The record is a 187-nucleotide RNA from Rummeliibacillus stabekisii, which matches "Lysine riboswitch aptamer" in Rfam.
Nucleotides: 187
Stems, first nucleotide, its partner, number of pairs: 006182006016080009031065006084115012116142002119139008145171009
Number, partner (000 for none) and nucleotide at each position: 001000c002000g003000g004000u005000g006182a007181g008180g009179u010178a011177g012000a013000g014000g015000c016080g017079c018078a019077g020076u021075a022074u023073u024072u025000a026000u027000u028000a029000g030000u031065u032064c033063u034062u035061a036060g037000u038000g039000g040000a041000g042000u043000u044000a045000g046000a047000g048000a049000a050000a051000g052000c053000g054000a055000u056000g057000a058000g059000u060036c061035u062034a063033a064032g065031a066000a067000g068000a069000a070000g071000g072024a073023a074022a075021u076020a077019u078018u079017g080016c081000c082000g083000a084115a085114g086113u087112g088111u089110g090109u091108a092107a093106c094105a095104a096000g097000u098000u099000u100000c101000u102000c103000a104095u105094u106093g107092u108091u109090g110089c111088a112087u113086g114085c115084u116142g117141g118000g119139u120138c121137u122136g123135c124134a125133g126132u127000g128000a129000a130000u131000a132126a133125c134124u135123g136122c137121a138120g139119g140000a141117c142116u143000g144000u145171c146170u147169c148168a149167a150166u151165a152164a153163a154000u155000u156000u157000c158000u159000a160000u161000g162000g163153u164152u165151u166150a167149u168148u169147g170146a171145g172000u173000u174000g175000u176000g177011c178010u179009a180008u181007c182006u183000c184000a185000a186000a187000u

Overview
Rfam's curators write: Riboswitches are metabolite binding domains within certain messenger RNAs that serve as precision sensors for their corresponding targets. It scores 113 bits against the family's covariance model.